[Rfam]
RNA: c-di-AMP riboswitch aptamer (ydaO/yuaA leader)
Organism: Streptomyces triculaminicus
RNA sequence: CCGCGCCCUUCGCCGAAUCCCGUGGAUGGAACCGGGGAACCAUCAACCUUUGGGGUGAAUCGGGCCGUCGAACCGGCCCGUAGGAGACCUUCCUGCUCCGAACCCGUCAGCUAACCCGGUAGGCGAGUCGGAAGGAAAGG
Numbered sequence: 001c002c003g004c005g006c007c008c009u010u011c012g013c014c015g016a017a018u019c020c021c022g023u024g025g026a027u028g029g030a031a032c033c034g035g036g037g038a039a040c041c042a043u044c045a046a047c048c049u050u051u052g053g054g055g056u057g058a059a060u061c062g063g064g065c066c067g068u069c070g071a072a073c074c075g076g077c078c079c080g081u082a083g084g085a086g087a088c089c090u091u092c093c094u095g096c097u098c099c100g101a102a103c104c105c106g107u108c109a110g111c112u113a114a115c116c117c118g119g120u121a122g123g124c125g126a127g128u129c130g131g132a133a134g135g136a137a138a139g140g
Base pairs, nucleotide, nucleotide: 011125012124013123014122018030019029020028031120032119033118034117035116036115041052042051053105054104055103061080062079063078064077065076066075083099084098085097086096